[Rfam]
RNA sequence: CAGUAUAUGAUGAAUUUCUCGGAUUCCCCUUCAAGACAUUAUGGGUGAUGCAAUCCCGAGUUUCUGAUGCU
Numbered sequence: 001c002a003g004u005a006u007a008u009g010a011u012g013a014a015u016u017u018c019u020c021g022g023a024u025u026c027c028c029c030u031u032c033a034a035g036a037c038a039u040u041a042u043g044g045g046u047g048a049u050g051c052a053a054u055c056c057c058g059a060g061u062u063u064c065u066g067a068u069g070c071u
Base pairs, nucleotide, nucleotide: 002071003070004069005068
RNA: Small nucleolar RNA snoR60